RNA sequence: CGUCCCCAGGGUUCACCACGUGGUCCUUGAUUUGAUGCUGAGUAAGAUUAAGGCACGCGGUGAAUGCCAAGGACG
Numbered sequence: 001c002g003u004c005c006c007c008a009g010g011g012u013u014c015a016c017c018a019c020g021u022g023g024u025c026c027u028u029g030a031u032u033u034g035a036u037g038c039u040g041a042g043u044a045a046g047a048u049u050a051a052g053g054c055a056c057g058c059g060g061u062g063a064a065u066g067c068c069a070a071g072g073a074c075g
Base pairs, nucleotide, nucleotide: 003073004072005071009067011065012064013063014062015061016060020058021057022056025053026052027051028050029049030048031047032046
The record is a 75-nucleotide RNA sequence from Helobdella robusta, which matches "mir-124 microRNA precursor family" in Rfam.
The literature on the family includes a 2003 paper in Genome Biol by Lai et al., "Computational identification of Drosophila microRNA genes".
Gene Ontology terms of the family: RISC complex and miRNA-mediated post-transcriptional gene silencing.
The organism belongs to Helobdella, within Eukaryota.
Rfam 15.1 lists 2,215 matches to the family in 905 species.